[Rfam]
RNA sequence: UUCUUAUCAAGAGAGGCGGAGGGAAAGGCCCUGUGAUGUCUCAGCAACCAGCCAACGGCAAGGUGCUAAAUCCUGCAGGUUUACCUGCAAGAUAAGAA
Number, nucleotide and partner (000 for none) at each position: 001u098002u097003c096004u095005u094006a093007u092008c091009a000010a000011g000012a000013g042014a041015g040016g039017c038018g000019g000020a000021g031022g030023g029024a000025a000026a074027g073028g072029c023030c022031c021032u000033g000034u000035g000036a000037u000038g017039u016040c015041u014042c013043a067044g066045c065046a064047a000048c063049c062050a000051g059052c058053c057054a000055a000056c000057g053058g052059c051060a000061a000062g049063g048064u046065g045066c044067u043068a000069a000070a000071u090072c028073c027074u026075g000076c087077a086078g085079g084080u000081u000082u000083a000084c079085c078086u077087g076088c000089a000090a071091g008092a007093u006094a005095a004096g003097a002098a001
About this RNA
The family of this 98-nucleotide RNA sequence from Alkalicoccus daliensis is "SAM riboswitch aptamer (S box leader)". Rfam describes the family as follows. The SAM riboswitch is found upstream of a number of genes which code for proteins involved in methionine or cysteine biosynthesis in Gram-positive bacteria. Taxonomically the source falls in Alkalicoccus (Bacteria, Bacillati, Bacillota, Bacillaceae).